[Rfam]
RNA sequence: GGUCCUGAGCAGCCAGAACGUGACAGGGGCGGGGGAACCAAGUAAGCCGGGCACGGGAGUGUCCUCGGGGUGAAGCCUCCUUGUGAGGCCGGGUGAUUGCUCUCCCCAUCCGAACCCGACAGCUCACUUCGUAGGCGUCCGAGGAGAUCACU
Numbered sequence: 001g002g003u004c005c006u007g008a009g010c011a012g013c014c015a016g017a018a019c020g021u022g023a024c025a026g027g028g029g030c031g032g033g034g035g036a037a038c039c040a041a042g043u044a045a046g047c048c049g050g051g052c053a054c055g056g057g058a059g060u061g062u063c064c065u066c067g068g069g070g071u072g073a074a075g076c077c078u079c080c081u082u083g084u085g086a087g088g089c090c091g092g093g094u095g096a097u098u099g100c101u102c103u104c105c106c107c108a109u110c111c112g113a114a115c116c117c118g119a120c121a122g123c124u125c126a127c128u129u130c131g132u133a134g135g136c137g138u139c140c141g142a143g144g145a146g147a148u149c150a151c152u
Stems, first nucleotide, its partner, number of pairs: 012136003019027001029132006039067001068117003076088004091111004
c-di-AMP riboswitch aptamer (ydaO/yuaA leader): a 152-nucleotide sequence from Promicromonospora sukumoe. A search with the family's covariance model found it, with a score of 61 bits. Rfam 15.1 lists 7,607 matches to the family in 2,262 species.